[Rfam]
RNA sequence: CGUGCUGCACCGCCUAAUCCUCGGCACGCGACCAGCGCGCCGCGGAACCGGGGAACCACCACUUGGGGUGCAUCGGACGGCCCGGCCGCCCGUAGGAGACCUUCCUGCUCCGAACCCGUCAGCUAACCCGGUCGGCGAGGGAAGGAAAGGAGUA
Number, nucleotide and partner (000 for none) at each position: 001c000002g000003u000004g000005c000006u000007g000008c000009a000010c000011c137012g136013c135014c134015u000016a000017a000018u046019c045020c044021u000022c000023g000024g000025c000026a000027c000028g000029c000030g000031a000032c000033c000034a000035g000036c000037g000038c000039g000040c000041c000042g000043c000044g020045g019046a018047a132048c131049c130050g129051g128052g127053g000054a000055a000056c000057c065058a064059c000060c000061a000062c000063u000064u058065g057066g117067g116068g115069u000070g000071c000072a000073u000074c092075g091076g090077a000078c000079g000080g000081c000082c000083c000084g000085g000086c000087c000088g000089c000090c076091c075092g074093u000094a000095g111096g110097a109098g108099a000100c000101c000102u000103u000104c000105c000106u000107g000108c098109u097110c096111c095112g000113a000114a000115c068116c067117c066118g000119u000120c000121a000122g000123c000124u000125a000126a000127c052128c051129c050130g049131g048132u047133c000134g014135g013136c012137g011138a000139g000140g000141g000142a000143a000144g000145g000146a000147a000148a000149g000150g000151a000152g000153u000154a000
Rfam assigns this 154-nucleotide RNA from Streptomyces harbinensis to the family "c-di-AMP riboswitch aptamer (ydaO/yuaA leader)".